[Rfam]
RNA sequence: UAUCGGCGUACAUCACCGGGAACGUGUUCCCACCGAGGUGCCGAGAGGGGCAAGCCUCGGCAACCCUCUCCGCAAGGAAGAAAGCCGGAACAUCAAGUGUUGAGUAGGGUUUGGUAGGCUCUCGCUCGAAGAACCCGGACUCU
Numbered sequence: 001u002a003u004c005g006g007c008g009u010a011c012a013u014c015a016c017c018g019g020g021a022a023c024g025u026g027u028u029c030c031c032a033c034c035g036a037g038g039u040g041c042c043g044a045g046a047g048g049g050g051c052a053a054g055c056c057u058c059g060g061c062a063a064c065c066c067u068c069u070c071c072g073c074a075a076g077g078a079a080g081a082a083a084g085c086c087g088g089a090a091c092a093u094c095a096a097g098u099g100u101u102g103a104g105u106a107g108g109g110u111u112u113g114g115u116a117g118g119c120u121c122u123c124g125c126u127c128g129a130a131g132a133a134c135c136c137g138g139a140c141u142c143u
Base pairs, nucleotide, nucleotide: 003044004043005042006041007040008039011038013036014035018031019030020029021028022027047055057088058087059086060085061084069078070077071076102142103141104140105139107136108135109134110133111132112131117126118125119124

The family of this 143-nucleotide sequence is "RT-3 RNA". It is one of the family's seed sequences. The family's RNA type in Rfam is small RNA.